This 82-nucleotide sequence belongs to the Rfam family "RT-18 RNA". By type it is a small RNA.

[Rfam]
RNA sequence: UGCCACUCGGCAAAAAUACGCCACAUCAGGUGGGAGCUAGUAGGACUGGACAGGUCUCGAAAACCCUCAAGGCUAAAAGAAA
Number, nucleotide and partner (000 for none) at each position: 001u012002g011003c010004c009005a000006c000007u000008c000009g004010g003011c002012a001013a000014a000015a000016a000017u000018a000019c000020g073021c072022c071023a000024c000025a000026u000027c000028a000029g000030g000031u069032g068033g067034g066035a000036g064037c000038u000039a000040g000041u000042a000043g058044g057045a055046c054047u053048g000049g000050a000051c000052a000053g047054g046055u045056c000057u044058c043059g000060a000061a000062a000063a000064c036065c000066c034067u033068c032069a031070a000071g022072g021073c020074u000075a000076a000077a000078a000079g000080a000081a000082a000